[Rfam]
RNA: Small nucleolar RNA SNORA46
RNA sequence: AGCACUAUUUUUAAACCUGUGGAUGGGAUUUCCCUCCACCAUAGGUUACGCUGUAGUGCAAAAUUAAUUCCUUGGCACUCUUCUGAGCACAGCUGACCUUGUGCCAUUUGGUUGAUGCUACUCUAAGCUAAGGAACAGAA
Numbered sequence: 001a002g003c004a005c006u007a008u009u010u011u012u013a014a015a016c017c018u019g020u021g022g023a024u025g026g027g028a029u030u031u032c033c034c035u036c037c038a039c040c041a042u043a044g045g046u047u048a049c050g051c052u053g054u055a056g057u058g059c060a061a062a063a064u065u066a067a068u069u070c071c072u073u074g075g076c077a078c079u080c081u082u083c084u085g086a087g088c089a090c091a092g093c094u095g096a097c098c099u100u101g102u103g104c105c106a107u108u109u110g111g112u113u114g115a116u117g118c119u120a121c122u123c124u125a126a127g128c129u130a131a132g133g134a135a136c137a138g139a140a
Stems, first nucleotide, its partner, number of pairs: 002059007014047004022040001024038004068135005074129003087118003090114004095109002